Shown here is a 129-nucleotide RNA from Gordonia iterans, a member of the family "SAM (S-adenosyl methionine) riboswitch aptamer". The match comes from Rfam's covariance-model search (98 bits). Its family is annotated with S-adenosylmethionine metabolic process and regulation of gene expression in the Gene Ontology. From the family's description: SAM-IV is a mRNA element that regulates gene expression via direct sensing of S-adenosylmethionine (SAM or AdoMet). SAM-IV riboswitches share conserved nucleotide positions with the previously described SAM-I riboswitches sequence analysis and molecular recognition experiments suggest that SAM-I and SAM-IV riboswitches share similar ligand binding sites, but have different scaffolds. The base pairs follow the family's consensus structure, which is taken from published work. NCBI's taxonomy places the organism under Bacteria, Actinomycetota, Actinomycetes, Gordoniaceae, Gordonia.
[Rfam]
RNA sequence: GGUCAUGAGUGUCAGCGCCAAGCCCCGGCUCGCUGAACGGCAACCCUCCAACCGCGGUGGGGUGCUCCGGGUGAUGACCUGGUCUUUACCGCACUGAACAAGCGCGAACAGUAUCGACAAGCGCGGGUC
Numbered sequence: 001g002g003u004c005a006u007g008a009g010u011g012u013c014a015g016c017g018c019c020a021a022g023c024c025c026c027g028g029c030u031c032g033c034u035g036a037a038c039g040g041c042a043a044c045c046c047u048c049c050a051a052c053c054g055c056g057g058u059g060g061g062g063u064g065c066u067c068c069g070g071g072u073g074a075u076g077a078c079c080u081g082g083u084c085u086u087u088a089c090c091g092c093a094c095u096g097a098a099c100a101a102g103c104g105c106g107a108a109c110a111g112u113a114u115c116g117a118c119a120a121g122c123g124c125g126g127g128u129c
Base pairs, nucleotide, nucleotide: 001079002078003077004076009038012036013035014034015033016032021030022029039066040065041064044062045061046060048057049056082118083117084116087113088112089111091109